[Rfam]
RNA sequence: GGCCCAAAUUUGAAGCAGAGUAGAUUAGUAGUAACAGCUGACCUUAAUAAUCUACUAUACUUCGAAUUCGGGCCC
Numbered sequence: 001g002g003c004c005c006a007a008a009u010u011u012g013a014a015g016c017a018g019a020g021u022a023g024a025u026u027a028g029u030a031g032u033a034a035c036a037g038c039u040g041a042c043c044u045u046a047a048u049a050a051u052c053u054a055c056u057a058u059a060c061u062u063c064g065a066a067u068u069c070g071g072g073c074c075c
Base pairs, nucleotide, nucleotide: 001074002073003072004071005070007068008067009066011064012063013062014061015060017058019056020055021054022053023052025050026049027048029046030045035040
RNA: mir-5928 microRNA precursor family
Organism: Haemonchus placei